[Rfam]
RNA sequence: GUUCAUUGGAUGAGUGUGAGGAAUUGGAUCGAUUUCACUCAAUCCAAGCCCCACAUUCAUCAGAGGUUUGU
Numbered sequence: 001g002u003u004c005a006u007u008g009g010a011u012g013a014g015u016g017u018g019a020g021g022a023a024u025u026g027g028a029u030c031g032a033u034u035u036c037a038c039u040c041a042a043u044c045c046a047a048g049c050c051c052c053a054c055a056u057u058c059a060u061c062a063g064a065g066g067u068u069u070g071u
Stems, first nucleotide, its partner, number of pairs: 004066001006064002009061010020050002024047006031040002
This 71-nucleotide RNA sequence from Nicotiana sylvestris belongs to the Rfam family "MIR6151 microRNA precursor family". Gene Ontology terms of the family: miRNA-mediated post-transcriptional gene silencing and RISC complex.